A member of the RNA family "TPP riboswitch aptamer (THI element)" from Jonesia denitrificans, 104 nucleotides long. The base pairs follow the family's consensus structure, which is taken from published work. A search with the family's covariance model found it, with a score of 62 bits.
[Rfam]
RNA sequence: CCCGUACGACAGGGGAGCGCACACCGCGCUGAGAGUGCCAGCACCGGCAGACCCUCGAACCUGACCCGGAUCAUACCGGCGUAGGGAGUCGGGCUAUCUCGCCG
Numbered sequence: 001c002c003c004g005u006a007c008g009a010c011a012g013g014g015g016a017g018c019g020c021a022c023a024c025c026g027c028g029c030u031g032a033g034a035g036u037g038c039c040a041g042c043a044c045c046g047g048c049a050g051a052c053c054c055u056c057g058a059a060c061c062u063g064a065c066c067c068g069g070a071u072c073a074u075a076c077c078g079g080c081g082u083a084g085g086g087a088g089u090c091g092g093g094c095u096a097u098c099u100c101g102c103c104g
Stems, first nucleotide, its partner, number of pairs: 007091004011055004017029004036049004060085004066079004